[Rfam]
RNA sequence: ACAAUCUUCGGACCGUCGCGUCGGUCUAGCGAGCAAUGACACUCGCUCGGUGGAAGAACUGCCCUUCGUCGU
Numbered sequence: 001a002c003a004a005u006c007u008u009c010g011g012a013c014c015g016u017c018g019c020g021u022c023g024g025u026c027u028a029g030c031g032a033g034c035a036a037u038g039a040c041a042c043u044c045g046c047u048c049g050g051u052g053g054a055a056g057a058a059c060u061g062c063c064c065u066u067c068g069u070c071g072u
Stems, first nucleotide, its partner, number of pairs: 004069002010063002016057002025054004030049005
RNA: mir-2774 microRNA precursor family